Notes
The family of this 98-nucleotide RNA sequence from Ruminiclostridium herbifermentans is "Guanidine-I riboswitch aptamer". Rfam 15.1 lists 1,509 matches to the family in 1,281 species. It scores 73 bits against the family's covariance model.
RNA sequence: UAAAAUGUUUUCUAGGGUUCCGCAGUAAAGCUGGCCUGUGACCGAGAGAAAACUCGCAGCUUUUAGCUGUGUCACGGAAGGACAAAAGCCUGGGAGGU
Numbered sequence: 001u002a003a004a005a006u007g008u009u010u011u012c013u014a015g016g017g018u019u020c021c022g023c024a025g026u027a028a029a030g031c032u033g034g035c036c037u038g039u040g041a042c043c044g045a046g047a048g049a050a051a052a053c054u055c056g057c058a059g060c061u062u063u064u065a066g067c068u069g070u071g072u073c074a075c076g077g078a079a080g081g082a083c084a085a086a087a088g089c090c091u092g093g094g095a096g097g098u
Base pairs, nucleotide, nucleotide: 007053008052009051010050011049012048015043016042020040021038022036023033024032025031026030055071056070057069058068059067060066073093075096079091080090081089